[Rfam]
RNA sequence: UGGACCAAUGAUGAGAUUGGAGGGUGUCUGAAUCAAAAAUUUUGAUUAAAGCCAUCUGUAACUCUGAGGUCCAU
Number, nucleotide and partner (000 for none) at each position: 001u000002g072003g071004a070005c069006c068007a000008a000009u000010g000011a000012u000013g000014a000015g000016a000017u000018u000019g000020g000021a000022g000023g000024g000025u000026g000027u000028c000029u000030g000031a000032a000033u000034c000035a000036a000037a000038a000039a000040u000041u000042u000043u000044g000045a000046u000047u000048a000049a000050a000051g000052c000053c000054a000055u000056c000057u000058g000059u000060a000061a000062c000063u000064c000065u000066g000067a000068g006069g005070u004071c003072c002073a000074u000
This 74-nucleotide RNA belongs to the Rfam family "Small nucleolar RNA SNORD113/SNORD114 family". It is annotated as a C/D-box small nucleolar RNA. From the family's description: The imprinted human domain at 14q32 contains two clusters of tandemly repeated small nucleolar RNAs named 14q(I) and 14q(II) snoRNAs. Clan: SNORD74 clan.